Overview
The record is a 131-nucleotide RNA sequence from Klebsiella pneumoniae, which matches "RtT RNA" in Rfam. The family's RNA type in Rfam is cis-regulatory element. Gene Ontology term of the family: cellular response to amino acid starvation. The source organism's lineage runs through Bacteria, Gammaproteobacteria, Enterobacterales, Klebsiella pneumoniae complex and Klebsiella pneumoniae subsp. pneumoniae. This family represents a bacterial cis-regulatory element known as RtT RNA. The exact function of RtT is unknown although it is thought that it may be involved in changing the cellular response in relation to amino acid starvation.
RNA sequence: UAUUCUGCCCCACGGGGAAGGAUGAGAAGCUUCGACUAAGGUUCGACUCGAGCGAAGCGAGAGAACGUUGCCGCUGGCAAUGGCCCGAAGGCGAGGCGCUUUAGCGCCGAGUAAUCCUUCCCCCACCACUG
Numbered sequence: 001u002a003u004u005c006u007g008c009c010c011c012a013c014g015g016g017g018a019a020g021g022a023u024g025a026g027a028a029g030c031u032u033c034g035a036c037u038a039a040g041g042u043u044c045g046a047c048u049c050g051a052g053c054g055a056a057g058c059g060a061g062a063g064a065a066c067g068u069u070g071c072c073g074c075u076g077g078c079a080a081u082g083g084c085c086c087g088a089a090g091g092c093g094a095g096g097c098g099c100u101u102u103a104g105c106g107c108c109g110a111g112u113a114a115u116c117c118u119u120c121c122c123c124c125a126c127c128a129c130u131g
Base pairs, nucleotide, nucleotide: 015122016121017120018119019118020117021116023114033093034092036091042089043088044087045086049059050058066082067081068080069079070078071077

The family's consensus secondary structure is taken from published work.